RNA sequence: UUUAUGGUGAUGAAACGAAUAUUUCGUGGACUAGAGUUUCAGAUCUGGGCUCUUCACCCAGAAUUUGAAGAAACAACCCUUGGCUGUCUGAGUAAA
Numbered sequence: 001u002u003u004a005u006g007g008u009g010a011u012g013a014a015a016c017g018a019a020u021a022u023u024u025c026g027u028g029g030a031c032u033a034g035a036g037u038u039u040c041a042g043a044u045c046u047g048g049g050c051u052c053u054u055c056a057c058c059c060a061g062a063a064u065u066u067g068a069a070g071a072a073a074c075a076a077c078c079c080u081u082g083g084c085u086g087u088c089u090g091a092g093u094a095a096a
Base pairs, nucleotide, nucleotide: 001096002095003094004093005092037070038069039068040067044063045061046060047059048058049057

Annotation:
Rfam assigns this 96-nucleotide sequence to the family "Small nucleolar RNA Z157/R69/R10". Rfam 15.1 lists 836 matches to the family in 232 species. The base pairs follow the family's consensus structure, which was predicted with PFOLD. Rfam links the family to the GO terms RNA processing and nucleolus. The sequence is in the family's curated seed alignment. Clan: SNORD52 clan. For this family Rfam cites "The high diversity of snoRNAs in plants: identification and comparative study of 120 snoRNA genes from Oryza sativa" (Chen et al., Nucleic Acids Res, 2003). Rfam classes the family as a C/D-box small nucleolar RNA.